[Rfam]
RNA sequence: UGGGCAGUAUCCAUAGAACUGCACCUCGGGAAAACCAUUUAAAUUAUACUGCCUGUAUCCGUUGCGGACCGGGACAGAGGG
Numbered sequence: 001u002g003g004g005c006a007g008u009a010u011c012c013a014u015a016g017a018a019c020u021g022c023a024c025c026u027c028g029g030g031a032a033a034a035c036c037a038u039u040u041a042a043a044u045u046a047u048a049c050u051g052c053c054u055g056u057a058u059c060c061g062u063u064g065c066g067g068a069c070c071g072g073g074a075c076a077g078a079g080g081g
Stems, first nucleotide, its partner, number of pairs: 002025002004022005010017002049077003052073004058068003